Background:
This 188-nucleotide RNA from Maledivibacter halophilus belongs to the Rfam family "Lysine riboswitch aptamer". It scores 102 bits against the family's covariance model. The family's consensus secondary structure is taken from published work. Lineage of the source: Bacteria > Bacillati > Clostridia > Caminicellaceae > Maledivibacter.
RNA sequence: GUGUAAAUUAGAGGAUGCAGUUAUAAUUAGUACUUUAACUUAAAGUAAGGGGACUAAAGGUUAUAAGGAAAGGUAUAACUGCCGAAAUGUAUUACUUCCCCUAAGUAAUACAUUGGGGCUAUGCUAAAUAAGCAUAGUACUGUCUACGGUUGAUUGCCCAAUCUUCCGAUGGAGGUGCUAAUUUAUAC
Numbered sequence: 001g002u003g004u005a006a007a008u009u010a011g012a013g014g015a016u017g018c019a020g021u022u023a024u025a026a027u028u029a030g031u032a033c034u035u036u037a038a039c040u041u042a043a044a045g046u047a048a049g050g051g052g053a054c055u056a057a058a059g060g061u062u063a064u065a066a067g068g069a070a071a072g073g074u075a076u077a078a079c080u081g082c083c084g085a086a087a088u089g090u091a092u093u094a095c096u097u098c099c100c101c102u103a104a105g106u107a108a109u110a111c112a113u114u115g116g117g118g119c120u121a122u123g124c125u126a127a128a129u130a131a132g133c134a135u136a137g138u139a140c141u142g143u144c145u146a147c148g149g150u151u152g153a154u155u156g157c158c159c160a161a162u163c164u165u166c167c168g169a170u171g172g173a174g175g176u177g178c179u180a181a182u183u184u185a186u187a188c
Stems, first nucleotide, its partner, number of pairs: 006183006017082009033067003036063005086114012115141002118138008143172002147168003